Shown here is a 106-nucleotide sequence from Bacillus coahuilensis, a member of the family "EGFOA RNA".
A search with the family's covariance model found it, with a score of 87 bits.
Lineage of the source: Bacteria > Bacillota > Bacilli > Caryophanales > Bacillus coahuilensis.
[Rfam]
RNA sequence: AAAUUCCCAGUAUUAUACCGUCGCAGUAGCCUUUAGGCUAGGUGGCAUGACAGAGUUAUGUAGAAUAUACGUGGUAAAGCUGCACCUGGGCACGUUAAAUGUCAUG
Numbered sequence: 001a002a003a004u005u006c007c008c009a010g011u012a013u014u015a016u017a018c019c020g021u022c023g024c025a026g027u028a029g030c031c032u033u034u035a036g037g038c039u040a041g042g043u044g045g046c047a048u049g050a051c052a053g054a055g056u057u058a059u060g061u062a063g064a065a066u067a068u069a070c071g072u073g074g075u076a077a078a079g080c081u082g083c084a085c086c087u088g089g090g091c092a093c094g095u096u097a098a099a100u101g102u103c104a105u106g
Stems, first nucleotide, its partner, number of pairs: 006090005020085002023083004027040005046106007057067003069095005